[Rfam]
RNA sequence: GAUCACGGUUAGUUUUGCCUAGUUGCGCUGCAAGAACAAUAAGUUGUGCAAAUCUAUGCAAAACUGACUGUGGUU
Dot-bracket structure: ..((((((((((((((((....((((((.((...........)).))))))......))))))))))))))))..